[Rfam]
RNA sequence: GUGUUGGAAUCAUUCGAAACAACACAGCAAGUUAAA
Numbered sequence: 001g002u003g004u005u006g007g008a009a010u011c012a013u014u015c016g017a018a019a020c021a022a023c024a025c026a027g028c029a030a031g032u033u034a035a036a
Stems, first nucleotide, its partner, number of pairs: 001020002004017004

A member of the RNA family "CRISPR RNA direct repeat element" from Streptococcus mutans, 36 nucleotides long.
Gene Ontology term of the family: defense response.
The sequence is in the family's curated seed alignment.